[Rfam]
RNA sequence: CCGUGCUAGAUGGGGAGUUAGCGGUGCCCUGUAACCUGCAAUCCGCUAUAGCAGGAUUGAAUUCCUCGUAGAGGUAUUAAUUUUUUAUAGUCUGACCCUUGUAAGUGGUGUUGAUGACUGGGUCCCACGCAAUGGAAGCCCAUGAACCUCGUCAGGUCCGGAAGGAAGCAGCGAUAAGUGGAUACUUUCGUGUGCCGUGGACUAAUCUGGUCUGAGCUAACUGCAAGGGUAACGUAUAGGGAAUUUUUAACGAAGCGAGGUGCACGG
Number, nucleotide and partner (000 for none) at each position: 001c267002c266003g265004u264005g263006c262007u000008a000009g058010a057011u056012g030013g029014g028015g027016a000017g025018u024019u023020a000021g000022c000023g019024g018025u017026g000027c015028c014029c013030u012031g000032u000033a000034a000035c055036c054037u053038g052039c051040a000041a000042u000043c000044c000045g000046c000047u000048a000049u000050a000051g039052c038053a037054g036055g035056a011057u010058u009059g000060a000061a000062u000063u000064c260065c259066u258067c257068g256069u255070a000071g000072a000073g251074g000075u249076a248077u000078u000079a000080a244081u243082u242083u241084u240085u239086u238087a237088u236089a235090g000091u000092c000093u231094g230095a000096c000097c228098c227099u226100u225101g224102u223103a000104a000105g221106u220107g218108g217109u216110g000111u000112u000113g000114a000115u000116g212117a211118c210119u209120g208121g207122g206123u205124c000125c200126c199127a198128c197129g196130c192131a191132a000133u190134g189135g188136a187137a186138g183139c000140c181141c180142a179143u178144g000145a000146a000147c000148c000149u174150c173151g172152u171153c000154a000155g000156g000157u166158c165159c164160g000161g000162a000163a000164g159165g158166a157167a000168g000169c000170a000171g152172c151173g150174a149175u000176a000177a000178g143179u142180g141181g140182a000183u138184a000185c000186u137187u136188u135189c134190g133191u131192g130193u000194g000195c000196c129197g128198u127199g126200g125201a000202c000203u000204a000205a123206u122207c121208u120209g119210g118211u117212c116213u000214g000215a000216g109217c108218u107219a000220a106221c105222u000223g102224c101225a100226a099227g098228g097229g000230u094231a093232a000233c000234g000235u089236a088237u087238a086239g085240g084241g083242a082243a081244u080245u000246u000247u000248u076249a075250a000251c073252g000253a000254a000255g069256c068257g067258a066259g065260g064261u000262g006263c005264a004265c003266g002267g001

The family of this 267-nucleotide RNA from Clostridium uliginosum is "Bacterial large signal recognition particle RNA". The organism belongs to Clostridium, within Bacteria. The family's consensus secondary structure is taken from published work. Rfam describes the family as follows. The signal recognition particle (SRP) is a universally conserved ribonucleoprotein involved in the co-translational targeting of proteins to membranes. A search with the family's covariance model found it, with a score of 220 bits. Rfam links the family to the GO terms signal recognition particle, plasma membrane targeting and SRP-dependent cotranslational protein targeting to membrane, signal sequence recognition.